Guanidine-I riboswitch aptamer: a 120-nucleotide sequence from Cohnella sp. AR92. The pairing is the family consensus, mapped onto this sequence. Lineage of the source: Bacteria > Bacillati > Bacillota > Bacilli > Cohnella.
RNA sequence: AGAAAGCUUCCCUAGGGUUCCGCGGCAUCGCCUCAAGCAGGCGGCAGCCGGUCCGGUCCGAGAGGGAACGCGCGGUCUCACUAGGAGACGCGUCCACGGAGGGAUAGAAGCCCGGGAGUA
Numbered sequence: 001a002g003a004a005a006g007c008u009u010c011c012c013u014a015g016g017g018u019u020c021c022g023c024g025g026c027a028u029c030g031c032c033u034c035a036a037g038c039a040g041g042c043g044g045c046a047g048c049c050g051g052u053c054c055g056g057u058c059c060g061a062g063a064g065g066g067a068a069c070g071c072g073c074g075g076u077c078u079c080a081c082u083a084g085g086a087g088a089c090g091c092g093u094c095c096a097c098g099g100a101g102g103g104a105u106a107g108a109a110g111c112c113c114g115g116g117a118g119u120a
Stems, first nucleotide, its partner, number of pairs: 008068005015059002020056002022053001023050004070093005076087001095115001097118001101113003
The match comes from Rfam's covariance-model search (71 bits).